[Rfam]
RNA sequence: AUUCGUCUUCAGGGGCAGGGUGUAAAUCCCGACCGGUGGUAAAGUCCACGACCUGUAUUUAAACGUACAGCUGAACUGGUGUAAAUCCAGUACCGACAGUAUAGUCUGGAAUGAAGAAGAUGGAG
Numbered sequence: 001a002u003u004c005g006u007c008u009u010c011a012g013g014g015g016c017a018g019g020g021u022g023u024a025a026a027u028c029c030c031g032a033c034c035g036g037u038g039g040u041a042a043a044g045u046c047c048a049c050g051a052c053c054u055g056u057a058u059u060u061a062a063a064c065g066u067a068c069a070g071c072u073g074a075a076c077u078g079g080u081g082u083a084a085a086u087c088c089a090g091u092a093c094c095g096a097c098a099g100u101a102u103a104g105u106c107u108g109g110a111a112u113g114a115a116g117a118a119g120a121u122g123g124a125g
Base pairs, nucleotide, nucleotide: 003123004122005121006120007119008118009117010116018030019029020028032105033104034095035094036049037048038047039046044093045092053070054069075091076090077089078088079087097108098107099106
RNA: FMN riboswitch aptamer (RFN element)